[Rfam]
Nucleotides: 067
Base pairs, nucleotide, nucleotide: 003067004066005065007062008061009060010059015056016055017054018053019052021050
Number, partner (000 for none) and nucleotide at each position: 001000g002000c003067g004066g005065u006000u007062c008061c009060g010059g011000u012000u013000c014000c015056c016055g017054c018053c019052c020000g021050c022000c023000c024000c025000g026000c027000g028000u029000g030000u031000c032000g033000g034000u035000c036000c037000g038000a039000c040000c041000g042000c043000g044000a045000g046000c047000g048000a049000c050021g051000a052019g053018g054017g055016c056015g057000a058000c059010c060009c061008g062007g063000c064000g065005g066004c067003c
Shown here is a 67-nucleotide RNA sequence from Sphaerisporangium rufum, a member of the family "L31-Actinobacteria ribosomal protein leader". It scores 38 bits against the family's covariance model. The family's RNA type in Rfam is cis-regulatory leader. Pairs were carried over by alignment from the consensus structure, which is taken from published work.